[Rfam]
The family of this 109-nucleotide RNA from Frondihabitans sp. PAMC 28766 is "TPP riboswitch aptamer (THI element)".
RNA sequence: UCACAACACACGGGAGUCCGGUGAGCCGGGCUGAGAGGAAGCGAACCACGCUUCGACCGUCGAACCUGAUCCGGAUCAUGCCGGCGCAGGGAGGAGAGCAAAAUGAGCG
Numbered sequence: 001u002c003a004c005a006a007c008a009c010a011c012g013g014g015a016g017u018c019c020g021g022u023g024a025g026c027c028g029g030g031c032u033g034a035g036a037g038g039a040a041g042c043g044a045a046c047c048a049c050g051c052u053u054c055g056a057c058c059g060u061c062g063a064a065c066c067u068g069a070u071c072c073g074g075a076u077c078a079u080g081c082c083g084g085c086g087c088a089g090g091g092a093g094g095a096g097a098g099c100a101a102a103a104u105g106a107g108c109g
Stems, first nucleotide, its partner, number of pairs: 007096001009094001011059003016031005038054005065090004071084004